[Rfam]
RNA: c-di-GMP-I riboswitch aptamer
Organism: Shewanella pealeana
RNA sequence: UGAUGAAAAAGGCAAAACCUGUGAAAGCAGGUGACGCAAAGCAUCCAGCCUAAGGGGACACCUAUGGCAGUGGCGCUACCGCA
Numbered sequence: 001u002g003a004u005g006a007a008a009a010a011g012g013c014a015a016a017a018c019c020u021g022u023g024a025a026a027g028c029a030g031g032u033g034a035c036g037c038a039a040a041g042c043a044u045c046c047a048g049c050c051u052a053a054g055g056g057g058a059c060a061c062c063u064a065u066g067g068c069a070g071u072g073g074c075g076c077u078a079c080c081g082c083a
Base pairs, nucleotide, nucleotide: 012037013036017032018031019030020029021028022027040077041076042075045073046072047071048068049067050066055062056061